[Rfam]
Nucleotides: 088
Base pairs, nucleotide, nucleotide: 017070018069019068020067021066022065024063025062028059029058030057031056032055034054035053036052037051
Number, partner (000 for none) and nucleotide at each position: 001000a002000c003000g004000u005000g006000a007000c008000c009000g010000g011000u012000g013000g014000g015000c016000u017070u018069c019068c020067c021066u022065u023000u024063g025062u026000c027000a028059u029058c030057c031056u032055u033000u034054g035053c036052c037051u038000a039000g040000g041000g042000c043000u044000c045000u046000g047000a048000g049000u050000g051037g052036g053035g054034c055032a056031g057030g058029g059028a060000c061000a062025g063024c064000a065022a066021a067020g068019g069018g070017g071000g072000g073000c074000u075000c076000a077000g078000c079000u080000g081000u082000c083000g084000c085000c086000u087000c088000u